[Rfam]
RNA sequence: GGUGGCUCACACCAGUGUUUCGGACAGCGGUUCGAUUCCGCUCAGCUCCAUUUCCGCCCUCGGGCGGAACCCACAAGGGGCUGCAAUGGUUUCGACGGGGCAUGAGGAGGGUGACUGAAGCCUGCUCGGUAAGAGCAAACCCGUAACAGCGAACAACAUCGUUCGUUUCUCCCGUCAAGCUGCCCCCGUGGCCGCCUGA
Number, nucleotide and partner (000 for none) at each position: 001g116002g115003u114004g000005g112006c000007u000008c000009a000010c000011a000012c000013c000014a000015g000016u102017g101018u100019u000020u098021c097022g096023g000024a000025c000026a042027g041028c040029g039030g038031u000032u000033c000034g000035a000036u000037u000038c030039c029040g028041c027042u026043c083044a082045g081046c080047u079048c078049c077050a000051u000052u000053u000054c000055c000056g000057c000058c000059c000060u000061c000062g000063g000064g000065c000066g000067g000068a000069a000070c000071c000072c000073a000074c000075a000076a000077g049078g048079g047080g046081c045082u044083g043084c000085a000086a000087u000088g000089g000090u000091u000092u000093c000094g000095a000096c022097g021098g020099g000100g018101c017102a016103u000104g000105a000106g000107g000108a000109g000110g000111g000112u005113g000114a003115c002116u001117g000118a000119a000120g000121c000122c000123u000124g000125c000126u000127c000128g000129g000130u000131a000132a000133g000134a000135g000136c000137a000138a000139a000140c000141c000142c000143g000144u000145a000146a000147c000148a000149g000150c000151g000152a000153a000154c000155a000156a000157c000158a000159u000160c000161g000162u000163u000164c000165g000166u000167u000168u000169c000170u000171c000172c000173c000174g000175u000176c000177a000178a000179g000180c000181u000182g000183c000184c000185c000186c000187c000188g000189u000190g000191g000192c000193c000194g000195c000196c000197u000198g000199a000
RNA: permuted transfer-messenger RNA
Organism: Cyanobium sp. NIES-981